[Rfam]
RNA sequence: ACGUGAUUGGGCUUGGGCUGAUUUAUUAGUCCGGCCCAGGAAAGUCCCCGAGCCCUUGUCUGCAGAGAUGCAGGCCCGGAAACGGGUAAAACUUGAUGUGGAAAUCUAAAUCUUACGAGAUUGGGCCGAGACGAGGUGGAGCCCUUGAGAUAUUUACCCGAUUAAAUUUGGCUGAUAACACAGUUAUUCACGUGGUCCAUUAUGGAUUUAACUGAACGGGGCUUAC
Numbered sequence: 001a002c003g004u005g006a007u008u009g010g011g012c013u014u015g016g017g018c019u020g021a022u023u024u025a026u027u028a029g030u031c032c033g034g035c036c037c038a039g040g041a042a043a044g045u046c047c048c049c050g051a052g053c054c055c056u057u058g059u060c061u062g063c064a065g066a067g068a069u070g071c072a073g074g075c076c077c078g079g080a081a082a083c084g085g086g087u088a089a090a091a092c093u094u095g096a097u098g099u100g101g102a103a104a105u106c107u108a109a110a111u112c113u114u115a116c117g118a119g120a121u122u123g124g125g126c127c128g129a130g131a132c133g134a135g136g137u138g139g140a141g142c143c144c145u146u147g148a149g150a151u152a153u154u155u156a157c158c159c160g161a162u163u164a165a166a167u168u169u170g171g172c173u174g175a176u177a178a179c180a181c182a183g184u185u186a187u188u189c190a191c192g193u194g195g196u197c198c199a200u201u202a203u204g205g206a207u208u209u210a211a212c213u214g215a216a217c218g219g220g221g222c223u224u225a226c
Stems, first nucleotide, its partner, number of pairs: 001193006009037004015032007042224003046221004061072004074087005090162001092160001098157002102155004111150004123144004133137001194208006

Shown here is a 226-nucleotide RNA from Apium graveolens, a member of the family "RNase MRP". Rfam classes the family as a ribozyme. The source organism's lineage runs through Eukaryota, Streptophyta, eudicotyledons, asterids and Apium. The base pairs follow the family's consensus structure, which is taken from published work.